Description:
A member of the RNA family "U2 spliceosomal RNA" from Mitosporidium daphniae, 190 nucleotides long. Rfam 15.1 lists 71,512 matches to the family in 2,642 species.

RNA sequence: UUAUCCUCUCAAGCCUAUUGGCUUAGAUCAAGUGUAGUAUCUGUUCUUAUCAGUUUGAAAACUGGUAUUCUUCCACCGGAAGAGUAUUAUUUUCAUUCUAAUUUUUUGCGCAGGGGGUUGUUGAUGGCUUGCCUAGACACCUCGUGGGUGUCCCUGGUAUUGUACUGCAUCCGGGUGACGUCCAGCCUCC
Numbered sequence: 001u002u003a004u005c006c007u008c009u010c011a012a013g014c015c016u017a018u019u020g021g022c023u024u025a026g027a028u029c030a031a032g033u034g035u036a037g038u039a040u041c042u043g044u045u046c047u048u049a050u051c052a053g054u055u056u057g058a059a060a061a062c063u064g065g066u067a068u069u070c071u072u073c074c075a076c077c078g079g080a081a082g083a084g085u086a087u088u089a090u091u092u093u094c095a096u097u098c099u100a101a102u103u104u105u106u107u108g109c110g111c112a113g114g115g116g117g118u119u120g121u122u123g124a125u126g127g128c129u130u131g132c133c134u135a136g137a138c139a140c141c142u143c144g145u146g147g148g149u150g151u152c153c154c155u156g157g158u159a160u161u162g163u164a165c166u167g168c169a170u171c172c173g174g175g176u177g178a179c180g181u182c183c184a185g186c187c188u189c190c
Stems, first nucleotide, its partner, number of pairs: 007027003012023004048067006068084007114143005121136001126133002146183006153175005

Description
Pairs were carried over by alignment from the consensus structure, which is taken from published work. Rfam links the family to the GO terms U2 snRNP, pre-mRNA branch point binding and mRNA branch site recognition. By type it is a spliceosomal small nuclear RNA. The literature on the family includes a 1990 paper in Nucleic Acids Res by Thomas et al., "The spliceosomal snRNAs of Caenorhabditis elegans". U2 is a small nuclear RNA (snRNA) component of the spliceosome (involved in pre-mRNA splicing). Complementary binding between U2 snRNA (in an area lying towards the 5' end but 3' to hairpin I) and the branchpoint sequence (BPS) of the intron results the bulging out of an unpaired adenosine, on the BPS, which initiates a nucleophilic attack at the intronic 5' splice site, thus starting the first of two transesterification reactions that mediate splicing.